[Rfam]
RNA sequence: GCAUGUGAUGAUAUUCUACUUGGAAUCUCGUUCGUCUGAACCCCACUGUUGAGAAGUGGAAUACUGAUGCUG
Numbered sequence: 001g002c003a004u005g006u007g008a009u010g011a012u013a014u015u016c017u018a019c020u021u022g023g024a025a026u027c028u029c030g031u032u033c034g035u036c037u038g039a040a041c042c043c044c045a046c047u048g049u050u051g052a053g054a055a056g057u058g059g060a061a062u063a064c065u066g067a068u069g070c071u072g
Stems, first nucleotide, its partner, number of pairs: 026054005033048002

A member of the RNA family "Small nucleolar RNA SNORD30" from Lepisosteus oculatus, 72 nucleotides long. The family has 20 seed sequences and 367 matches in Rfam 15.1. The literature on the family includes a 1996 paper in Nature by Tycowski et al., "A mammalian gene with introns instead of exons generating stable RNA products". Rfam classes the family as a C/D-box small nucleolar RNA. Its Rfam clan is "SNORD30 clan".